[Rfam]
RNA sequence: GUCCGGAUGAACCUCGGUGGUCCGGGGUGCAGGCUUCAAACCUGUAGCCGACUAGCGUCGGAGCGGUUCAAUUCCGCCUUCCGGGC
Number, nucleotide and partner (000 for none) at each position: 001g086002u085003c084004c083005g082006g081007a080008u000009g078010a000011a000012c027013c026014u025015c024016g023017g022018u000019g000020g000021u000022c017023c016024g015025g014026g013027g012028u046029g045030c044031a043032g042033g041034c000035u000036u000037c000038a000039a000040a000041c033042c032043u031044g030045u029046a028047g000048c061049c060050g059051a058052c057053u000054a000055g000056c000057g052058u051059c050060g049061g048062a000063g077064c076065g075066g074067u000068u000069c000070a000071a000072u000073u000074c066075c065076g064077c063078c009079u000080u007081c006082c005083g004084g003085g002086c001

Annotation
Rfam assigns this 86-nucleotide RNA from Branchiostoma floridae to the family "Selenocysteine transfer RNA". It scores 80 bits against the family's covariance model. Pairs were carried over by alignment from the consensus structure, which is taken from published work. NCBI's taxonomy places the organism under Eukaryota, Bilateria, Chordata, Amphioxiformes, Branchiostoma.